Rfam assigns this 66-nucleotide RNA to the family "Small nucleolar RNA U49". A reference for the family is Brown et al. (2001), "Multiple snoRNA gene clusters from Arabidopsis", RNA. Its family is annotated with RNA processing and nucleolus in the Gene Ontology.
RNA sequence: CACCGAUGAAGAAGAAUUCCCAAGUAUAGGAAGUGCCGUAUGACACUUUUAAAACGCAGCAUUUCG
Numbered sequence: 001c002a003c004c005g006a007u008g009a010a011g012a013a014g015a016a017u018u019c020c021c022a023a024g025u026a027u028a029g030g031a032a033g034u035g036c037c038g039u040a041u042g043a044c045a046c047u048u049u050u051a052a053a054a055c056g057c058a059g060c061a062u063u064u065c066g
Base pairs, nucleotide, nucleotide: 014060030049031048032047033046034045035044
It is annotated as a C/D-box small nucleolar RNA.